The record is a 133-nucleotide RNA sequence from Chiloscyllium punctatum, which matches "Small nucleolar RNA U109" in Rfam.
A search with the family's covariance model found it, with a score of 60 bits.
Rfam links the family to the GO terms RNA processing and nucleolus.
NCBI's taxonomy places the organism under Eukaryota, Deuterostomia, Craniata, Orectolobiformes, Chiloscyllium.
The literature on the family includes a 2005 paper in Nucleic Acids Res by Gu et al., "A novel experimental approach for systematic identification of box H/ACA snoRNAs from eukaryotes".
Rfam classes the family as an H/ACA-box small nucleolar RNA.
RNA sequence: UAUCAUUUGGGAAAAUUCAGACACCUAUGCCCAUUUGGUGUUUGAUGUGAUAAUGUGCUAGAGGAAUACUGGAGAUAACAGGGCCAUCAGUCUUUCAGGACAGACUGAAUGGUAGUAUCAGUCUCUGACACCA
Numbered sequence: 001u002a003u004c005a006u007u008u009g010g011g012a013a014a015a016u017u018c019a020g021a022c023a024c025c026u027a028u029g030c031c032c033a034u035u036u037g038g039u040g041u042u043u044g045a046u047g048u049g050a051u052a053a054u055g056u057g058c059u060a061g062a063g064g065a066a067u068a069c070u071g072g073a074g075a076u077a078a079c080a081g082g083g084c085c086a087u088c089a090g091u092c093u094u095u096c097a098g099g100a101c102a103g104a105c106u107g108a109a110u111g112g113u114a115g116u117a118u119c120a121g122u123c124u125c126u127g128a129c130a131c132c133a
Stems, first nucleotide, its partner, number of pairs: 004057003008053001018044008071126004083113002087109001088107006